[Rfam]
RNA sequence: AGUACACAUGAUGAACAACAAGGGACUUAAUACUGAUUCAUUUGAUGUCACCUUCAUAUUAUUCUGACUGUUC
Numbered sequence: 001a002g003u004a005c006a007c008a009u010g011a012u013g014a015a016c017a018a019c020a021a022g023g024g025a026c027u028u029a030a031u032a033c034u035g036a037u038u039c040a041u042u043u044g045a046u047g048u049c050a051c052c053u054u055c056a057u058a059u060u061a062u063u064c065u066g067a068c069u070g071u072u073c
Base pairs, nucleotide, nucleotide: 002073004071005070006069

Small nucleolar RNA SNORD82: a 73-nucleotide RNA from Coregonus sp. 'balchen'.
For this family Rfam cites "Purified box C/D snoRNPs are able to reproduce site-specific 2'-O-methylation of target RNA in vitro" (Galardi et al., Mol Cell Biol, 2002).
It scores 50 bits against the family's covariance model.
The base pairs follow the family's consensus structure, which was predicted with PFOLD.
snoRNA U82 or Z25 is found in both humans and mice.
Rfam classes the family as a C/D-box small nucleolar RNA.